[Rfam]
Annotation:
A member of the RNA family "SAH (S-adenosyl-L-homocysteine) riboswitch aptamer" from Massilia sp. Dwa41.01b, 74 nucleotides long.

RNA sequence: CGUUCCGAGGAGCGUUGCGACGAAAAGAUUCCUUUUCGCCAGGCUCGGAUAUCCAGCAACCGCGCUCACGUUAC
Numbered sequence: 001c002g003u004u005c006c007g008a009g010g011a012g013c014g015u016u017g018c019g020a021c022g023a024a025a026a027g028a029u030u031c032c033u034u035u036u037c038g039c040c041a042g043g044c045u046c047g048g049a050u051a052u053c054c055a056g057c058a059a060c061c062g063c064g065c066u067c068a069c070g071u072u073a074c
Base pairs, nucleotide, nucleotide: 004049005048006047007046008045021038022037023036024035025034026033
Dot-bracket structure: ...(((((............((((((......))))))......))))).........................